[Rfam]
A member of the RNA family "SAM (S-adenosyl methionine) riboswitch aptamer" from Xylanimonas ulmi, 113 nucleotides long. The source organism's lineage runs through Bacteria, Actinomycetota, Actinomycetes, Promicromonosporaceae and Xylanimonas. The family is grouped with related families in Rfam's "SAM clan".

RNA sequence: GGUCAAGAGCGCCAGCGCCAAGCCCCGGCUCGCUGGCCGGCAACCCUCCCCUCACGGCGGGGUGCCCCGGGUGACGACCCGGCCGCGCGCUGACCGCGCGGCAAGCGCGAGAG
Numbered sequence: 001g002g003u004c005a006a007g008a009g010c011g012c013c014a015g016c017g018c019c020a021a022g023c024c025c026c027g028g029c030u031c032g033c034u035g036g037c038c039g040g041c042a043a044c045c046c047u048c049c050c051c052u053c054a055c056g057g058c059g060g061g062g063u064g065c066c067c068c069g070g071g072u073g074a075c076g077a078c079c080c081g082g083c084c085g086c087g088c089g090c091u092g093a094c095c096g097c098g099c100g101g102c103a104a105g106c107g108c109g110a111g112a113g
Stems, first nucleotide, its partner, number of pairs: 001079004009038001011037006021030002039066003044062003048057002082102008